[Rfam]
RNA: Clostridiales-1 RNA
Organism: Firmicutes bacterium CAG:227
RNA sequence: UGAUGUAAGUGUCAAAAAUAUAAAUUGCGGUUGUGCUUGCAUAAAAAGCAAUUUAUAUUUAAUUGACACGCCGAACAACGAAAACGUAAUAAAAUGGUAUGAAUAUGCCAUUUUAUGAGAGUUUGAGGUGUUCGAGGAUUGUGAGAAUUGCGUAGCAAUGAAGCAAUCCGGAUACAUCA
Numbered sequence: 001u002g003a004u005g006u007a008a009g010u011g012u013c014a015a016a017a018a019u020a021u022a023a024a025u026u027g028c029g030g031u032u033g034u035g036c037u038u039g040c041a042u043a044a045a046a047a048g049c050a051a052u053u054u055a056u057a058u059u060u061a062a063u064u065g066a067c068a069c070g071c072c073g074a075a076c077a078a079c080g081a082a083a084a085c086g087u088a089a090u091a092a093a094a095u096g097g098u099a100u101g102a103a104u105a106u107g108c109c110a111u112u113u114u115a116u117g118a119g120a121g122u123u124u125g126a127g128g129u130g131u132u133c134g135a136g137g138a139u140u141g142u143g144a145g146a147a148u149u150g151c152g153u154a155g156c157a158a159u160g161a162a163g164c165a166a167u168c169c170g171g172a173u174a175c176a177u178c179a
Stems, first nucleotide, its partner, number of pairs: 001179007010068004016060013031044005072134006079127001082124004089116012136169007147159004